[Rfam]
RNA sequence: UUCAUUGUUGUCAAUGAUGUAUUCUUGUGGAACUGAAUAUAAAUGAUUUAACUCAAAUGUUCGUCACUACCACUGAGACAACAAUGGA
Numbered sequence: 001u002u003c004a005u006u007g008u009u010g011u012c013a014a015u016g017a018u019g020u021a022u023u024c025u026u027g028u029g030g031a032a033c034u035g036a037a038u039a040u041a042a043a044u045g046a047u048u049u050a051a052c053u054c055a056a057a058u059g060u061u062c063g064u065c066a067c068u069a070c071c072a073c074u075g076a077g078a079c080a081a082c083a084a085u086g087g088a
Base pairs, nucleotide, nucleotide: 001088002087003086004085005084006083007082008081009080010079011078012077
The family of this 88-nucleotide RNA sequence from Suricata suricatta is "Small nucleolar RNA SNORD70". On this family, see Huttenhofer et al., EMBO J 2001: "RNomics: an experimental approach that identifies 201 candidates for novel, small, non-messenger RNAs in mouse". The base pairs follow the family's consensus structure. From the family's description: snoRNA HBII-234 belongs to the C/D family of snoRNAs. It is the human orthologue of the mouse MBII-234 and is predicted to guide 2'O-ribose methylation of the small 18S rRNA on position A512. It is hosted, together with HBII-95, by the core C/D box snoRNA protein encoding gene NOP5/NOP58. Its family is annotated with nucleolus and RNA processing in the Gene Ontology. The family's RNA type in Rfam is C/D-box small nucleolar RNA.